[Rfam]
RNA sequence: AAUAAUCAAUAGCCUAAGUUUUUAAAUAAACGCGGGGAAACCAGUUUUUUGGGGUGAAUCGCUUCAAGCGUAGGUUAUGCCUUUACCAAACCCGUCAGCUAACCCCGUCGGUAAAAGGAGAGAUAUA
Numbered sequence: 001a002a003u004a005a006u007c008a009a010u011a012g013c014c015u016a017a018g019u020u021u022u023u024a025a026a027u028a029a030a031c032g033c034g035g036g037g038a039a040a041c042c043a044g045u046u047u048u049u050u051g052g053g054g055u056g057a058a059u060c061g062c063u064u065c066a067a068g069c070g071u072a073g074g075u076u077a078u079g080c081c082u083u084u085a086c087c088a089a090a091c092c093c094g095u096c097a098g099c100u101a102a103c104c105c106c107g108u109c110g111g112u113a114a115a116a117g118g119a120g121a122g123a124u125a126u127a
Stems, first nucleotide, its partner, number of pairs: 012112003018031003032108006042051002052093003060070004073087003
Rfam assigns this 127-nucleotide sequence from Clostridium sp. JN-9 to the family "c-di-AMP riboswitch aptamer (ydaO/yuaA leader)".
The organism belongs to Clostridium, within Bacteria.